A member of the RNA family "mir-395 microRNA precursor family", 100 nucleotides long. mir-395 was identified in both Arabidopsis thaliana and Oryza sativa computationally and was later experimentally verified. mir-395 is thought to target mRNAs coding for ATP sulphurylases. The mature sequence is excised from the 3' arm of the hairpin. The sequence is in the family's curated seed alignment. The literature on the family includes a 2004 paper in Mol Cell by Jones-Rhoades and Bartel, "Computational Identification of Plant MicroRNAs and Their Targets, Including a Stress-Induced miRNA". The base pairs follow the family's consensus structure, which was predicted with PFOLD.
RNA sequence: AUGUCCCCAUGAGUUCCCUUUAACGCUUCAUUGUUAAAUACUCAAAGCCACAUUGGUUUGUAUACAACACUGAAGUGUUUGGGGGGACUCUUGGUGUCAU
Number, nucleotide and partner (000 for none) at each position: 001a000002u000003g000004u000005c096006c000007c094008c093009a092010u000011g090012a089013g088014u087015u086016c085017c084018c083019u082020u081021u000022a080023a079024c077025g076026c075027u074028u073029c072030a071031u000032u069033g068034u067035u066036a000037a000038a000039u000040a000041c000042u000043c000044a000045a000046a000047g000048c000049c000050a000051c000052a000053u000054u000055g000056g000057u000058u000059u000060g000061u000062a000063u000064a000065c000066a035067a034068c033069a032070c000071u030072g029073a028074a027075g026076u025077g024078u000079u023080u022081g020082g019083g018084g017085g016086g015087a014088c013089u012090c011091u000092u009093g008094g007095u000096g005097u000098c000099a000100u000